[Rfam]
RNA sequence: AAUCUCGAGUAAUCGCGCCCGGCCUAUGUCGGGUGAGGAAAGUCCAUGCCCGCACAAGCUGCGAUGCUUGUAGUGUUCGCGCUAGGCCCAAUAAGCCUAGGUACCGCUUUGGCGGUAACGGCGGUGGCACCGGCUAACGCUUCGGCCAUGCUGGUGCGCCUGAAAGUGCCACAGAAACGAGGCCGCCUGGAAACAGGCGGCAUGGAACGGGUAAACCCCGCGAGCGAGUAACCCAAACUUUGGUAGGGGCGCAAGGGCUAGGGAAUUGAACCGAUGCCCCCAACAGUGCAAACUGAGAUAGAUGAUUACUGAAGGUCCGGCUGCCUGAGUCGGACUGGAACAAAACAUGGCUUAUAGAG
Numbered sequence: 001a002a003u004c005u006c007g008a009g010u011a012a013u014c015g016c017g018c019c020c021g022g023c024c025u026a027u028g029u030c031g032g033g034u035g036a037g038g039a040a041a042g043u044c045c046a047u048g049c050c051c052g053c054a055c056a057a058g059c060u061g062c063g064a065u066g067c068u069u070g071u072a073g074u075g076u077u078c079g080c081g082c083u084a085g086g087c088c089c090a091a092u093a094a095g096c097c098u099a100g101g102u103a104c105c106g107c108u109u110u111g112g113c114g115g116u117a118a119c120g121g122c123g124g125u126g127g128c129a130c131c132g133g134c135u136a137a138c139g140c141u142u143c144g145g146c147c148a149u150g151c152u153g154g155u156g157c158g159c160c161u162g163a164a165a166g167u168g169c170c171a172c173a174g175a176a177a178c179g180a181g182g183c184c185g186c187c188u189g190g191a192a193a194c195a196g197g198c199g200g201c202a203u204g205g206a207a208c209g210g211g212u213a214a215a216c217c218c219c220g221c222g223a224g225c226g227a228g229u230a231a232c233c234c235a236a237a238c239u240u241u242g243g244u245a246g247g248g249g250c251g252c253a254a255g256g257g258c259u260a261g262g263g264a265a266u267u268g269a270a271c272c273g274a275u276g277c278c279c280c281c282a283a284c285a286g287u288g289c290a291a292a293c294u295g296a297g298a299u300a301g302a303u304g305a306u307u308a309c310u311g312a313a314g315g316u317c318c319g320g321c322u323g324c325c326u327g328a329g330u331c332g333g334a335c336u337g338g339a340a341c342a343a344a345a346c347a348u349g350g351c352u353u354a355u356a357g358a359g
Stems, first nucleotide, its partner, number of pairs: 004359003007355001008310007016035006040353003044350005049228001051226003054071006077223005082100006101119001102117006120218002123160004131153004139146002166216002168212003182201008232248003255279004284295004314336009
This 359-nucleotide RNA from Lacticaseibacillus nasuensis belongs to the Rfam family "Bacterial RNase P class B". The family's RNA type in Rfam is ribozyme. From the family's description: Ribonuclease P (RNase P) is a ubiquitous endoribonuclease, found in archaea, bacteria and eukarya as well as chloroplasts and mitochondria. Its best characterised activity is the generation of mature 5'-ends of tRNAs by cleaving the 5'-leader elements of precursor-tRNAs. Cellular RNase Ps are ribonucleoproteins. RNA from bacterial RNase Ps retains its catalytic activity in the absence of the protein subunit, i.e. it is a ribozyme. The match comes from Rfam's covariance-model search (305 bits). Taxonomically the source falls in Lacticaseibacillus nasuensis (Bacteria, Bacillati, Bacillota, Lactobacillaceae). Pairs were carried over by alignment from the consensus structure, which is taken from published work. For this family Rfam cites "The Ribonuclease P Database" (Brown, Nucleic Acids Res, 1999).